[Rfam]
Source information
A member of the RNA family "Bacterial small subunit ribosomal RNA" from Clostridium sp. KNHs216, 354 nucleotides of a longer RNA. Clan: SSU clan. For this family Rfam cites "Crystal structure of the ribosome at 5.5 A resolution" (Yusupov et al., Science, 2001). It scores 1577 bits against the family's covariance model.
RNA sequence: GGUGUAAAGGGUGCGUAGGCGGCUCUGCAAGUCAGGCGUGAAAUAUAUGGGCUUAACCCAUAGACUGCGUUUGAAACUGUGGAGCUUGAGUGAAGUAGAGGUAGGCGGAAUUCCCGGUGUAGCGGUGAAAUGCGUAGAGAUCGGGAGGAACACCAGUGGCGAAGGCGGCUUACUGGGCUUUAACUGACGCUGAGGCACGAAAGCAUGGGUAGCAAACAGGAUUAGAUACCCUGGUAGUCCAUGCCGUAAACGAUGAUUACUAGGUGUGGGGGGUCUGACCCCUUCCGUGCCGGAGUUAACACAAUAAGUAAUCCACCUGGGGAGUACGGCCGCAAGGUUGAAACUCAAAGGAAU
Number, nucleotide and partner (000 for none) at each position: 001g317002g316003u315004g000005u000006a000007a000008a000009g314010g000011g198012u197013g196014c195015g000016u192017a000018g191019g190020c189021g000022g085023c084024u083025c082026u081027g080028c079029a000030a078031g077032u074033c073034a072035g071036g070037c069038g068039u067040g066041a000042a000043a000044u000045a000046u062047a061048u060049g059050g058051g057052c000053u000054u000055a000056a000057c051058c050059c049060a048061u047062a046063g000064a000065c000066u040067g039068c038069g037070u036071u035072u034073g033074a032075a000076a000077c031078u030079g028080u027081g026082g025083a024084g023085c022086u000087u000088g000089a185090g184091u183092g181093a180094a179095g178096u177097a000098g000099a000100g174101g173102u172103a171104g170105g169106c168107g151108g000109a000110a000111u147112u146113c145114c144115c143116g142117g141118u140119g000120u000121a000122g133123c132124g131125g000126u000127g000128a000129a000130a000131u124132g123133c122134g000135u000136a000137g000138a000139g000140a118141u117142c116143g115144g114145g113146a112147g111148g000149a000150a000151c107152a000153c000154c000155a000156g000157u000158g000159g166160c165161g000162a000163a000164g000165g160166c159167g000168g106169c105170u104171u103172a102173c101174u100175g000176g000177g096178c095179u094180u093181u092182a000183a091184c090185u089186g000187a000188c000189g020190c019191u018192g016193a000194g000195g014196c013197a012198c011199g000200a000201a000202a000203g244204c243205a242206u241207g240208g239209g000210u000211a000212g238213c237214a000215a000216a000217c233218a232219g231220g230221a000222u000223u000224a000225g000226a000227u000228a000229c000230c220231c219232u218233g217234g000235u000236a000237g213238u212239c208240c207241a206242u205243g204244c203245c000246g000247u000248a000249a000250a000251c000252g000253a000254u000255g313256a312257u311258u310259a309260c308261u000262a000263g291264g290265u289266g288267u287268g286269g285270g284271g283272g282273g281274u000275c000276u000277g000278a000279c000280c000281c273282c272283u271284u270285c269286c268287g267288u266289g265290c264291c263292g000293g000294a000295g302296u301297u000298a000299a000300c000301a296302c295303a000304a000305u000306a000307a000308g260309u259310a258311a257312u256313c255314c009315a003316c002317c001318u000319g346320g345321g344322g000323a000324g000325u000326a000327c000328g339329g338330c337331c336332g000333c000334a000335a000336g331337g330338u329339u328340g000341a000342a000343a000344c321345u320346c319347a000348a000349a000350g000351g000352a000353a000354u000